[Rfam]
RNA sequence: CUGGCGUUAUGAUGACCUCACGACAAACCAUAUGCUAUUGGGCUUGUGAGGUCUGAUGCUUGCCAG
Numbered sequence: 001c002u003g004g005c006g007u008u009a010u011g012a013u014g015a016c017c018u019c020a021c022g023a024c025a026a027a028c029c030a031u032a033u034g035c036u037a038u039u040g041g042g043c044u045u046g047u048g049a050g051g052u053c054u055g056a057u058g059c060u061u062g063c064c065a066g
Stems, first nucleotide, its partner, number of pairs: 001066005014053010028041003

Shown here is a 66-nucleotide RNA from Actinia tenebrosa, a member of the family "Selenocysteine insertion sequence 1".
The organism belongs to Actinia, within Eukaryota.
By type it is a cis-regulatory element.
A search with the family's covariance model found it, with a score of 40 bits.